A member of the RNA family "mir-395 microRNA precursor family" from Malus baccata, 96 nucleotides long. Rfam links the family to the GO terms miRNA-mediated post-transcriptional gene silencing and RISC complex. The source organism's lineage runs through Eukaryota, Magnoliopsida, fabids, Maleae and Malus. About the family: mir-395 was identified in both Arabidopsis thaliana and Oryza sativa computationally and was later experimentally verified. mir-395 is thought to target mRNAs coding for ATP sulphurylases. The mature sequence is excised from the 3' arm of the hairpin. The literature on the family includes a 2004 paper in Mol Cell by Jones-Rhoades and Bartel, "Computational Identification of Plant MicroRNAs and Their Targets, Including a Stress-Induced miRNA".
[Rfam]
RNA sequence: GUGUCACCAAGAGUUCCCUUGACCACUUCAUUGGGAAACAGUCUCUUUUGCAACUAAAUAUCCUACUGAAGUGUUUGGGGGAACUCCCGGCGGCAU
Numbered sequence: 001g002u003g004u005c006a007c008c009a010a011g012a013g014u015u016c017c018c019u020u021g022a023c024c025a026c027u028u029c030a031u032u033g034g035g036a037a038a039c040a041g042u043c044u045c046u047u048u049u050g051c052a053a054c055u056a057a058a059u060a061u062c063c064u065a066c067u068g069a070a071g072u073g074u075u076u077g078g079g080g081g082a083a084c085u086c087c088c089g090g091c092g093g094c095a096u
Stems, first nucleotide, its partner, number of pairs: 005092001007090002011086010022076001024073007032065004